[Rfam]
RNA sequence: AAUCCUUGAUCGCUUAAUUCUGCACAGCAGAAACGGGGGAACCAUAGGAAUGCUUGCCGUUCCAGGGGUGAAUCGCUUGAUGUCUCCAUCAGCGUAAGGUUACUUUCAGACCUGAAUCCGUCAGCUAACCUCGUAAGCGUCUCGAAAGAGGAACU
Numbered sequence: 001a002a003u004c005c006u007u008g009a010u011c012g013c014u015u016a017a018u019u020c021u022g023c024a025c026a027g028c029a030g031a032a033a034c035g036g037g038g039g040a041a042c043c044a045u046a047g048g049a050a051u052g053c054u055u056g057c058c059g060u061u062c063c064a065g066g067g068g069u070g071a072a073u074c075g076c077u078u079g080a081u082g083u084c085u086c087c088a089u090c091a092g093c094g095u096a097a098g099g100u101u102a103c104u105u106u107c108a109g110a111c112c113u114g115a116a117u118c119c120g121u122c123a124g125c126u127a128a129c130c131u132c133g134u135a136a137g138c139g140u141c142u143c144g145a146a147a148g149a150g151g152a153a154c155u
Base pairs, nucleotide, nucleotide: 011139012138013137014136018032019031020030033134034133035132036131037130038129043065066119067118068117074094075093076092077091097113098112099111100110
RNA: c-di-AMP riboswitch aptamer (ydaO/yuaA leader)